[Rfam]
RNA: MIR480 microRNA precursor family
Organism: Populus trichocarpa
RNA sequence: UAAUCUAUUCGGGGGCAGAUUCUCAUUUAGUUAUGGUAGACAAACACUUAAUUGCUUAAGGUCACUCGUUAUCGCAAGUUCGACUAUAUCACUGACAUUGAAAAACAACGACUCAUAAAAUAUAUUUUGCAAAAAAAGUUC
Numbered sequence: 001u002a003a004u005c006u007a008u009u010c011g012g013g014g015g016c017a018g019a020u021u022c023u024c025a026u027u028u029a030g031u032u033a034u035g036g037u038a039g040a041c042a043a044a045c046a047c048u049u050a051a052u053u054g055c056u057u058a059a060g061g062u063c064a065c066u067c068g069u070u071a072u073c074g075c076a077a078g079u080u081c082g083a084c085u086a087u088a089u090c091a092c093u094g095a096c097a098u099u100g101a102a103a104a105a106c107a108a109c110g111a112c113u114c115a116u117a118a119a120a121u122a123u124a125u126u127u128u129g130c131a132a133a134a135a136a137a138g139u140u141c
Base pairs, nucleotide, nucleotide: 005138006137008134009133012130015128019121020120025116026115028111030109031108032107